[Rfam]
RNA sequence: ACAUUCGUGAAUGAGUGAACUCAUAUAAUAGUGGUAAUAAGGUCCACGAGUUUCUACCAGAUACCGUAACAUAUCUGACUAUGAGAAAAUUCAGAAGUUAA
Numbered sequence: 001a002c003a004u005u006c007g008u009g010a011a012u013g014a015g016u017g018a019a020c021u022c023a024u025a026u027a028a029u030a031g032u033g034g035u036a037a038u039a040a041g042g043u044c045c046a047c048g049a050g051u052u053u054c055u056a057c058c059a060g061a062u063a064c065c066g067u068a069a070c071a072u073a074u075c076u077g078a079c080u081a082u083g084a085g086a087a088a089a090u091u092c093a094g095a096a097g098u099u100a101a
Stems, first nucleotide, its partner, number of pairs: 020085006029049001031047004058077006
Shown here is a 101-nucleotide sequence from Clostridium butyricum, a member of the family "Purine riboswitch aptamer". The match comes from Rfam's covariance-model search (70 bits). The base pairs follow the family's consensus structure, which is taken from published work. Lineage of the source: Bacteria > Bacillati > Bacillota > Clostridiaceae > Clostridium butyricum.